[Rfam]
RNA sequence: CCUGGAGAAGUACGGCACAGAUCAAUGUCUGUAUAAGCGCCGUAUAAAACGAUCCGGUCAUAAAAUACGCAGACACCGCAAAAACGAUCAGUACCCCUGUCAUGCUGACAAAGACGCGCGGUGCGUACAUAAUUCCUCCUCCCGAACUUAAACUUGCUCAGUUCAUCGAUCUUUCGGCUCCUCU
Numbered sequence: 001c002c003u004g005g006a007g008a009a010g011u012a013c014g015g016c017a018c019a020g021a022u023c024a025a026u027g028u029c030u031g032u033a034u035a036a037g038c039g040c041c042g043u044a045u046a047a048a049a050c051g052a053u054c055c056g057g058u059c060a061u062a063a064a065a066u067a068c069g070c071a072g073a074c075a076c077c078g079c080a081a082a083a084a085c086g087a088u089c090a091g092u093a094c095c096c097c098u099g100u101c102a103u104g105c106u107g108a109c110a111a112a113g114a115c116g117c118g119c120g121g122u123g124c125g126u127a128c129a130u131a132a133u134u135c136c137u138c139c140u141c142c143c144g145a146a147c148u149u150a151a152a153c154u155u156g157c158u159c160a161g162u163u164c165a166u167c168g169a170u171c172u173u174u175c176g177g178c179u180c181c182u183c184u
Stems, first nucleotide, its partner, number of pairs: 004181004014097002027053003031041001069079002072076001118141001120139002123135001125133002142177005
Shown here is a 184-nucleotide sequence from Rhizobium sp. YS-1r, a member of the family "Rhizobiales sRNA Atu_L1". Taxonomically the source falls in Rhizobium (Bacteria, Pseudomonadota, Hyphomicrobiales, Rhizobiaceae). The base pairs follow the family's consensus structure, which was predicted with CMfinder.